[Rfam]
RNA sequence: AUGAUUACAUGGGGAGAGAUUAUCGUUCCAUUUCGUUGAUCAAUUUGGAAAGAUAACGCCGAAGGAGCAAGCAAACAUGCGAAUCUCUCAGGCAAAAAGACUCUUGUAGGACG
Numbered sequence: 001a002u003g004a005u006u007a008c009a010u011g012g013g014g015a016g017a018g019a020u021u022a023u024c025g026u027u028c029c030a031u032u033u034c035g036u037u038g039a040u041c042a043a044u045u046u047g048g049a050a051a052g053a054u055a056a057c058g059c060c061g062a063a064g065g066a067g068c069a070a071g072c073a074a075a076c077a078u079g080c081g082a083a084u085c086u087c088u089c090a091g092g093c094a095a096a097a098a099g100a101c102u103c104u105u106g107u108a109g110g111a112c113g
Stems, first nucleotide, its partner, number of pairs: 006108004011103003020056004058093003061089002065087003071080002
The record is a 113-nucleotide RNA from Oceanobacillus picturae, which matches "Glycine riboswitch aptamer" in Rfam. A search with the family's covariance model found it, with a score of 66 bits. This family represents the bacterial glycine riboswitch.